[Rfam]
RNA sequence: UUUAUUGCCGAUGCAGCAUCAUCAAGAUUCUCACUUUCAAAUGGGUUUGGCAAUAAAAUUUGAAAAGGGAAGAAGGGUAUUAUCAUCGGCACCUUGCAUUUGCAUGUGAAUCUUGAUGAUGCUACACCCACAAACAA
Numbered sequence: 001u002u003u004a005u006u007g008c009c010g011a012u013g014c015a016g017c018a019u020c021a022u023c024a025a026g027a028u029u030c031u032c033a034c035u036u037u038c039a040a041a042u043g044g045g046u047u048u049g050g051c052a053a054u055a056a057a058a059u060u061u062g063a064a065a066a067g068g069g070a071a072g073a074a075g076g077g078u079a080u081u082a083u084c085a086u087c088g089g090c091a092c093c094u095u096g097c098a099u100u101u102g103c104a105u106g107u108g109a110a111u112c113u114u115g116a117u118g119a120u121g122c123u124a125c126a127c128c129c130a131c132a133a134a135c136a137a
Stems, first nucleotide, its partner, number of pairs: 010128001012126002015123016032106002